[Rfam]
RNA: mir-17 microRNA precursor family
Organism: Phoenicopterus ruber
RNA sequence: CCAGGGGCCCCAAAGUGCUGUUUGUGCAGGUAGUGCGUGUGCAGCAUCUACUGCCGAGGCAGCACUUCCAGAGCCCCCAG
Numbered sequence: 001c002c003a004g005g006g007g008c009c010c011c012a013a014a015g016u017g018c019u020g021u022u023u024g025u026g027c028a029g030g031u032a033g034u035g036c037g038u039g040u041g042c043a044g045c046a047u048c049u050a051c052u053g054c055c056g057a058g059g060c061a062g063c064a065c066u067u068c069c070a071g072a073g074c075c076c077c078c079a080g
Stems, first nucleotide, its partner, number of pairs: 004077004010071001013067011026054002029052005